[Rfam]
RNA sequence: GAAUCUUUUCACAAAAGACUUUAUCCGACAAUUCAUCAUCUGUCAAUUGUGGAUUUGAAUGC
Numbered sequence: 001g002a003a004u005c006u007u008u009u010c011a012c013a014a015a016a017g018a019c020u021u022u023a024u025c026c027g028a029c030a031a032u033u034c035a036u037c038a039u040c041u042g043u044c045a046a047u048u049g050u051g052g053a054u055u056u057g058a059a060u061g062c
Stems, first nucleotide, its partner, number of pairs: 002020001004018006021058002023054005030048004034042002

Poxvirus AX element late mRNA cis-regulatory element: a 62-nucleotide RNA from Orthopoxvirus ectromelia. It is one of the family's seed sequences. The family's consensus secondary structure is taken from published work. The literature on the family includes a 1999 paper in Virology by Howard et al., "A 43-nucleotide RNA cis-acting element governs the site-specific formation of the 3' end of a poxvirus late mRNA". NCBI's taxonomy places the organism under Viruses, Nucleocytoviricota, Chitovirales, Poxviridae, Orthopoxvirus ectromelia.